[Rfam]
RNA sequence: GGACGAGCCUCUGGAGAGAUCGUAAACAGGUAUUCAAAUCUGAAUAACUGUAUUGCGGCGCCGAAGGCGAAAGUGUCACAGUGAAUUCGUUCACUGACCAAUAGCCAAACUUAUCGUUUGGGUAUAGACGCGAAACGCUCAGGCAAAAGGACAGAGGAGAGGAU
Numbered sequence: 001g002g003a004c005g006a007g008c009c010u011c012u013g014g015a016g017a018g019a020u021c022g023u024a025a026a027c028a029g030g031u032a033u034u035c036a037a038a039u040c041u042g043a044a045u046a047a048c049u050g051u052a053u054u055g056c057g058g059c060g061c062c063g064a065a066g067g068c069g070a071a072a073g074u075g076u077c078a079c080a081g082u083g084a085a086u087u088c089g090u091u092c093a094c095u096g097a098c099c100a101a102u103a104g105c106c107a108a109a110c111u112u113a114u115c116g117u118u119u120g121g122g123u124a125u126a127g128a129c130g131c132g133a134a135a136c137g138c139u140c141a142g143g144c145a146a147a148a149g150g151a152c153a154g155a156g157g158a159g160a161g162g163a164u
Stems, first nucleotide, its partner, number of pairs: 008157006020058006060144003063140002067138003073131005
Rfam assigns this 164-nucleotide RNA sequence from Shewanella sediminis to the family "Glycine riboswitch aptamer". The organism belongs to Shewanella sediminis, within Bacteria.